[Rfam]
Source information:
A member of the RNA family "Iron response element I" from Chrysochloris asiatica, 35 nucleotides long. A search with the family's covariance model found it, with a score of 38 bits. Rfam 15.1 lists 6,829 matches to the family in 599 species.
RNA sequence: CUGUCUCUUGCUUCAACCUUGUUUGGGCGGAACAG
Numbered sequence: 001c002u003g004u005c006u007c008u009u010g011c012u013u014c015a016a017c018c019u020u021g022u023u024u025g026g027g028c029g030g031a032a033c034a035g
Stems, first nucleotide, its partner, number of pairs: 001035004006031003010028001012027005017021001